The family of this 314-nucleotide sequence from Mycolicibacterium austroafricanum is "Mycobacterium smegmatis small RNA 1". Rfam describes the family as follows. Mycobacterium smegmatis small RNA 1 is highly expressed during stationary phase of growth. Ms1 RNA directly interacts with RNA polymerase (RNAP), but in a different way than 6S, which is present in other bacteria. Ms1 does not require the presence of the main sigma factor for RNAP interaction.
[Rfam]
RNA sequence: ACGGAAGCCGGGUGAGGCCAAGGCCGAGCCGGAAGAGAAGGCUCGAUCUCCCGAUCUCGGCUCCUAGCACGGGUCCCGGAACCCACGCGGAGCACAUACCGCGAAGAAGGUAAUAGGUUUGCGGGCCUGCGUAAUUGCGGAUAUCGGACGACCACGACGACCCCUUGGGUGGGGUUGCAGUCGUAACGGUUCGCAGGGACGCCGAGGCCACCCACGCAACCCAACCGGCACGCCUGGUAACCGGUGACCCGUGCUAGCGGGCGGUGAGCCGAUGUGGUCGCAGGACCACUUCGGGUCGCCGCCCGCUUCGUUUG
Number, nucleotide and partner (000 for none) at each position: 001a000002c000003g064004g063005a000006a062007g061008c060009c059010g058011g057012g056013u000014g000015a000016g052017g051018c000019c000020a000021a049022g048023g000024c000025c045026g044027a043028g042029c041030c040031g000032g000033a000034a000035g000036a000037g000038a000039a000040g030041g029042c028043u027044c026045g025046a000047u000048c022049u021050c000051c017052c016053g000054a000055u000056c012057u011058c010059g009060g008061c007062u006063c004064c003065u256066a255067g254068c253069a252070c251071g250072g249073g248074u000075c000076c244077c243078g242079g241080a000081a000082c000083c237084c236085a235086c000087g233088c232089g231090g000091a000092g229093c228094a000095c000096a000097u112098a111099c110100c109101g000102c000103g000104a000105a000106g000107a000108a000109g100110g099111u098112a097113a000114u000115a000116g000117g000118u000119u219120u218121g217122c216123g215124g209125g208126c207127c206128u205129g202130c201131g200132u199133a000134a000135u196136u195137g194138c193139g192140g191141a000142u000143a000144u189145c188146g187147g000148a184149c183150g182151a181152c180153c000154a000155c000156g000157a000158c177159g176160a175161c174162c173163c172164c171165u000166u000167g000168g000169g000170u000171g164172g163173g162174g161175u160176u159177g158178c000179a000180g152181u151182c150183g149184u148185a000186a000187c146188g145189g144190u000191u140192c139193g138194c137195a136196g135197g000198g000199a132200c131201g130202c129203c000204g000205a128206g127207g126208c125209c124210a000211c000212c000213c000214a000215c123216g122217c121218a120219a119220c000221c000222c000223a000224a000225c000226c000227g000228g093229c092230a000231c089232g088233c087234c000235u085236g084237g083238u000239a000240a000241c079242c078243g077244g076245u000246g000247a000248c073249c072250c071251g070252u069253g068254c067255u066256a065257g306258c305259g304260g303261g302262c301263g300264g299265u298266g297267a296268g000269c294270c293271g292272a000273u000274g000275u000276g000277g000278u000279c000280g000281c000282a000283g000284g000285a000286c000287c000288a000289c000290u000291u000292c271293g270294g269295g000296u267297c266298g265299c264300c263301g262302c261303c260304c259305g258306c257307u000308u000309c000310g000311u000312u000313u000314g000

Rfam links the family to the GO term RNA polymerase binding. It scores 294 bits against the family's covariance model. The family's consensus secondary structure was predicted with CMfinder. The source organism's lineage runs through Bacteria, Actinomycetes, Mycobacteriaceae, Mycobacterium and Mycolicibacterium austroafricanum.